[Rfam]
RNA sequence: UUGCCUGAUGCAAUUUGUGUUCUACUCUUCUAUUAAAGAACAUGACUAUAUCACUAUCAUGAUACAUAUAAAAAAUGAGAAGGUUUGCUUUAGGGCUGCUGACUUUUUGGCUGAGGUUAUGUGGAAGUAUAUUUCAUGUUAAACAC
Dot-bracket structure: ...(.(((.......((((((((.............))))))))............))).).............(((.(................(..((((((((......))))))).)..)..........).))).......
Numbered sequence: 001u002u003g004c005c006u007g008a009u010g011c012a013a014u015u016u017g018u019g020u021u022c023u024a025c026u027c028u029u030c031u032a033u034u035a036a037a038g039a040a041c042a043u044g045a046c047u048a049u050a051u052c053a054c055u056a057u058c059a060u061g062a063u064a065c066a067u068a069u070a071a072a073a074a075a076u077g078a079g080a081a082g083g084u085u086u087g088c089u090u091u092a093g094g095g096c097u098g099c100u101g102a103c104u105u106u107u108u109g110g111c112u113g114a115g116g117u118u119a120u121g122u123g124g125a126a127g128u129a130u131a132u133u134u135c136a137u138g139u140u141a142a143a144c145a146c
Stems, first nucleotide, its partner, number of pairs: 004061001006059003016044008075139003079135001096124001099121001100119007
The record is a 146-nucleotide RNA from Molossus molossus, which matches "Small nucleolar RNA U109" in Rfam. NCBI's taxonomy places the organism under Eukaryota, Opisthokonta, Vertebrata, Mammalia, Molossus. Its family is annotated with RNA processing and nucleolus in the Gene Ontology.